The family of this 498-nucleotide part of an RNA from Mesorhabditis spiculigera is "Eukaryotic small subunit ribosomal RNA".
It scores 1508 bits against the family's covariance model.
A reference for the family is Yusupov et al. (2001), "Crystal structure of the ribosome at 5.5 A resolution", Science.
RNA sequence: CGGUUAAAAAGCUCGUAGUUGGAUCUGAGCCCGCGGGGCCGGUCCACCUCUGUGUGGUACCGUGCUCCAGGGUUAAUUUCGUCGGCUCACGUCGGCGAGAGUUACUCUGAAGAAAUCAGAGUGCUCAAAACAGGCGUUUCGCUUGAAUGUUUUUGCAUGGAAUAAUGGAAAAGGACUUCGGUUCCUUACUGUUGGUUUCGGAAUUGGAUUAAUGAUUAAGAGGGACCAACGGGGGCAUACGUAUCGCUACGCGAGAGGUGAAAUUCAUGGACCGUAGCGAGACGACCUACAGCGAAAGCAUUUGCCAAGAAUGUCUUCGUUAAUCAAGAACGAAAGUCAGAGGUUCGAAGGCGAUUAGAUACCGCCGUAGUUCUGACCGUAAACGAUACCAUCUAGCGAUCCGGCGGUGGUAUUAUUGCCUCGCCGGGGAGCUUCCCGGAAACGAAAGACUUCCGGUUCCGGGGGUAGUAUGGUUGCAAAGCUGAAACUCAAAGGAAU
Numbered sequence: 001c002g003g004u005u006a007a008a009a010a011g012c013u014c015g016u017a018g019u020u021g022g023a024u025c026u027g028a029g030c031c032c033g034c035g036g037g038g039c040c041g042g043u044c045c046a047c048c049u050c051u052g053u054g055u056g057g058u059a060c061c062g063u064g065c066u067c068c069a070g071g072g073u074u075a076a077u078u079u080c081g082u083c084g085g086c087u088c089a090c091g092u093c094g095g096c097g098a099g100a101g102u103u104a105c106u107c108u109g110a111a112g113a114a115a116u117c118a119g120a121g122u123g124c125u126c127a128a129a130a131c132a133g134g135c136g137u138u139u140c141g142c143u144u145g146a147a148u149g150u151u152u153u154u155g156c157a158u159g160g161a162a163u164a165a166u167g168g169a170a171a172a173g174g175a176c177u178u179c180g181g182u183u184c185c186u187u188a189c190u191g192u193u194g195g196u197u198u199c200g201g202a203a204u205u206g207g208a209u210u211a212a213u214g215a216u217u218a219a220g221a222g223g224g225a226c227c228a229a230c231g232g233g234g235g236c237a238u239a240c241g242u243a244u245c246g247c248u249a250c251g252c253g254a255g256a257g258g259u260g261a262a263a264u265u266c267a268u269g270g271a272c273c274g275u276a277g278c279g280a281g282a283c284g285a286c287c288u289a290c291a292g293c294g295a296a297a298g299c300a301u302u303u304g305c306c307a308a309g310a311a312u313g314u315c316u317u318c319g320u321u322a323a324u325c326a327a328g329a330a331c332g333a334a335a336g337u338c339a340g341a342g343g344u345u346c347g348a349a350g351g352c353g354a355u356u357a358g359a360u361a362c363c364g365c366c367g368u369a370g371u372u373c374u375g376a377c378c379g380u381a382a383a384c385g386a387u388a389c390c391a392u393c394u395a396g397c398g399a400u401c402c403g404g405c406g407g408u409g410g411u412a413u414u415a416u417u418g419c420c421u422c423g424c425c426g427g428g429g430a431g432c433u434u435c436c437c438g439g440a441a442a443c444g445a446a447a448g449a450c451u452u453c454c455g456g457u458u459c460c461g462g463g464g465g466u467a468g469u470a471u472g473g474u475u476g477c478a479a480a481g482c483u484g485a486a487a488c489u490c491a492a493a494g495g496a497a498u
Stems, first nucleotide, its partner, number of pairs: 001461003009458001011331001013329002018324003222318003226313001230309001234306004239301001240284002244280008255266003292299002336377006346370001350366004388457003392449002395433003400428008409420003437444002463490003472483004